Background
Rfam assigns this 85-nucleotide RNA sequence from Thermoclostridium stercorarium to the family "c-di-GMP-I riboswitch aptamer". The source organism's lineage runs through Bacteria, Clostridia, Thermoclostridium, Thermoclostridium stercorarium and Thermoclostridium stercorarium subsp. stercorarium. Pairs were carried over by alignment from the consensus structure, which is taken from published work. Rfam describes the family as follows. GEMM was predicted in a large-scale screen for bacterial structured RNA regulatory elements.

[Rfam]
RNA sequence: CUCCGAUAAAGGCAAACCUGCUGAAAGGCAGGGGCGCAAAGCCAUAGGGCCUAAAGCGUAAUGCAAUGGCAGCCUGGCUACCGAA
Numbered sequence: 001c002u003c004c005g006a007u008a009a010a011g012g013c014a015a016a017c018c019u020g021c022u023g024a025a026a027g028g029c030a031g032g033g034g035c036g037c038a039a040a041g042c043c044a045u046a047g048g049g050c051c052u053a054a055a056g057c058g059u060a061a062u063g064c065a066a067u068g069g070c071a072g073c074c075u076g077g078c079u080a081c082c083g084a085a
Base pairs, nucleotide, nucleotide: 012037013036017032018031019030020029021028022027040079041078042077043076046075047074048073049070050069051068056064057063058062